[Rfam]
RNA sequence: CGCUUAUUAAGAAAGACGGAGGGAUUAGACCCAAUGAUGUCUUAGCAACCUGUGCCAACAAGGUGCUAAAUUCUAAUCUCAGCAGUGGCGAGAGAAGAUAAGUU
Numbered sequence: 001c002g003c004u005u006a007u008u009a010a011g012a013a014a015g016a017c018g019g020a021g022g023g024a025u026u027a028g029a030c031c032c033a034a035u036g037a038u039g040u041c042u043u044a045g046c047a048a049c050c051u052g053u054g055c056c057a058a059c060a061a062g063g064u065g066c067u068a069a070a071u072u073c074u075a076a077u078c079u080c081a082g083c084a085g086u087g088g089c090g091a092g093a094g095a096a097g098a099u100a101a102g103u104u
Stems, first nucleotide, its partner, number of pairs: 002103007013043005021032003026076001028074001029072001044067004049063002051060003071096001077093004
Shown here is a 104-nucleotide sequence from Pedobacter insulae, a member of the family "SAM riboswitch aptamer (S box leader)". A search with the family's covariance model found it, with a score of 64 bits. NCBI's taxonomy places the organism under Bacteria, Pseudomonadati, Sphingobacteriia, Sphingobacteriales, Pedobacter. The SAM riboswitch is found upstream of a number of genes which code for proteins involved in methionine or cysteine biosynthesis in Gram-positive bacteria.